[Rfam]
Shown here is a 158-nucleotide RNA sequence from Glycine soja, a member of the family "MIR4371 microRNA precursor family".
Clan: MIR4387 microRNA precursor clan.
A search with the family's covariance model found it, with a score of 140 bits.

Nucleotides: 158
Stems, first nucleotide, its partner, number of pairs: 001156001003154005009148007017140005023134001025132016042115005048109004055102004070087005
Number, partner (000 for none) and nucleotide at each position: 001156c002000c003154g004153u005152u006151a007150a008000a009148u010147g011146a012145u013144g014143a015142c016000a017140u018139g019138a020137c021136a022000u023134a024000c025132g026131g027130a028129g029128u030127g031126u032125c033124a034123c035122a036121u037120c038119a039118u040117c041000c042115u043114g044113c045112c046111u047000u048109g049108u050107c051106a052000c053000c054000a055102a056101c057100a058099c059000c060000u061000c062000a063000u064000u065000g066000c067000c068000a069000c070087a071086u072085c073084a074083u075000c076000a077000c078000c079000u080000u081000c082000a083074a084073u085072g086071a087070u088000g089000u090000g091000a092000c093000a094000c095000u096000a097000a098000c099058g100057u101056g102055u103000c104000a105000a106051u107050g108049a109048u110000u111046g112045g113044g114043c115042g116000u117040g118039a119038u120037g121036a122035u123034g124033u125032g126031g127030c128029a129028c130027u131026c132025u133000a134023u135000c136021u137020g138019u139018c140017a141000c142015g143014u144013c145012a146011u147010c148009a149000c150007u151006u152005a153004a154003c155000a156001g157000a158000a